[Rfam]
A member of the RNA family "Eukaryotic small subunit ribosomal RNA" from Trichomonas vaginalis, 418 nucleotides of a longer RNA.
It scores 1241 bits against the family's covariance model.
RNA sequence: CAGUUAAAACGCCCGUAGUCUGAAUUGGCCAGCAAUGGUCGUACGUAUUUUUACGUUCACUGUGAACAAAUCAGGACGCUUAGAGUAUGGCCACAUGAAUGACUCAGCGCAGUAUGAAGUCUUUGUUUUCUUCCGAAAACAAGCUCAAUGAGAGCCAUCGGGGGUAGAUCUAUCUCAUGACGAGUGGUGGAAUACUUUGACUCAUGAGAGAGAAGCUGAGGCGAAGGCGUCUACCUAGAGGGUUUCUGUCGAUCAAGGGCGAGAGUAGGAGUAUCCAACAGGAUUAGAGACCCUGGUAGUUCCUACCUUAAACGAUGCCGACAGGAGUUUGUCAUUUGUUAAUGGCAGAAUCUUUGGAGAAAUCAUAGUUCUUGGGCUCUGGGGGAACUACGACCGCAAGGCUGAAACUUGAAGGAAU
Numbered sequence: 001c002a003g004u005u006a007a008a009a010c011g012c013c014c015g016u017a018g019u020c021u022g023a024a025u026u027g028g029c030c031a032g033c034a035a036u037g038g039u040c041g042u043a044c045g046u047a048u049u050u051u052u053a054c055g056u057u058c059a060c061u062g063u064g065a066a067c068a069a070a071u072c073a074g075g076a077c078g079c080u081u082a083g084a085g086u087a088u089g090g091c092c093a094c095a096u097g098a099a100u101g102a103c104u105c106a107g108c109g110c111a112g113u114a115u116g117a118a119g120u121c122u123u124u125g126u127u128u129u130c131u132u133c134c135g136a137a138a139a140c141a142a143g144c145u146c147a148a149u150g151a152g153a154g155c156c157a158u159c160g161g162g163g164g165u166a167g168a169u170c171u172a173u174c175u176c177a178u179g180a181c182g183a184g185u186g187g188u189g190g191a192a193u194a195c196u197u198u199g200a201c202u203c204a205u206g207a208g209a210g211a212g213a214a215g216c217u218g219a220g221g222c223g224a225a226g227g228c229g230u231c232u233a234c235c236u237a238g239a240g241g242g243u244u245u246c247u248g249u250c251g252a253u254c255a256a257g258g259g260c261g262a263g264a265g266u267a268g269g270a271g272u273a274u275c276c277a278a279c280a281g282g283a284u285u286a287g288a289g290a291c292c293c294u295g296g297u298a299g300u301u302c303c304u305a306c307c308u309u310a311a312a313c314g315a316u317g318c319c320g321a322c323a324g325g326a327g328u329u330u331g332u333c334a335u336u337u338g339u340u341a342a343u344g345g346c347a348g349a350a351u352c353u354u355u356g357g358a359g360a361a362a363u364c365a366u367a368g369u370u371c372u373u374g375g376g377c378u379c380u381g382g383g384g385g386a387a388c389u390a391c392g393a394c395c396g397c398a399a400g401g402c403u404g405a406a407a408c409u410u411g412a413a414g415g416a417a418u
Stems, first nucleotide, its partner, number of pairs: 001381003009378001011260004018253003151247004155242002158239002162236007169213002173209008184195003221228002265306006275299001279295004317377003320370003324353003329348008357364002383410003392403001394401002

Gene Ontology terms of the family: structural constituent of ribosome and ribosome. The source organism's lineage runs through Eukaryota, Metamonada, Trichomonadidae, Trichomonas and Trichomonas vaginalis. A reference for the family is Yusupov et al. (2001), "Crystal structure of the ribosome at 5.5 A resolution", Science. The base pairs follow the family's consensus structure, which is taken from published work.